[Rfam]
RNA sequence: GUACCGGACGGGAGUUAUACCGCAGUGACCCAUAGUUGUACAUCGAAGGAGAGCGACGACAGAUGUGCAGACGGUGC
Numbered sequence: 001g002u003a004c005c006g007g008a009c010g011g012g013a014g015u016u017a018u019a020c021c022g023c024a025g026u027g028a029c030c031c032a033u034a035g036u037u038g039u040a041c042a043u044c045g046a047a048g049g050a051g052a053g054c055g056a057c058g059a060c061a062g063a064u065g066u067g068c069a070g071a072c073g074g075u076g077c
Stems, first nucleotide, its partner, number of pairs: 001077006010031003037069008

Shown here is a 77-nucleotide sequence, a member of the family "CyVA-1 RNA". Cyanobacteria, Acidobacteria (1 example), Verrucomicrobia (1 example).